[Rfam]
Source information:
ALIL pseudoknot: a 117-nucleotide RNA from Falsiroseomonas stagni. The base pairs follow the family's consensus structure, which is taken from published work. The organism belongs to Falsiroseomonas stagni, within Bacteria. A search with the family's covariance model found it, with a score of 117 bits.

RNA sequence: CGCAUAUUUUGCGCAGGCGGAGCUCGACCGCCGGUUCAAGCGAUGAUCGCCUUCAUCGACGAUCACCGAGGUGUUCAUGGCGUCGAGCCGAUCUGCGAGGUUUUGCCGAUCGCGCCA
Numbered sequence: 001c002g003c004a005u006a007u008u009u010u011g012c013g014c015a016g017g018c019g020g021a022g023c024u025c026g027a028c029c030g031c032c033g034g035u036u037c038a039a040g041c042g043a044u045g046a047u048c049g050c051c052u053u054c055a056u057c058g059a060c061g062a063u064c065a066c067c068g069a070g071g072u073g074u075u076c077a078u079g080g081c082g083u084c085g086a087g088c089c090g091a092u093c094u095g096c097g098a099g100g101u102u103u104u105g106c107c108g109a110u111c112g113c114g115c116c117a
Base pairs, nucleotide, nucleotide: 016032017031018030019029020028078117079116080115081114082113089112090111092109093108095106096105097104098103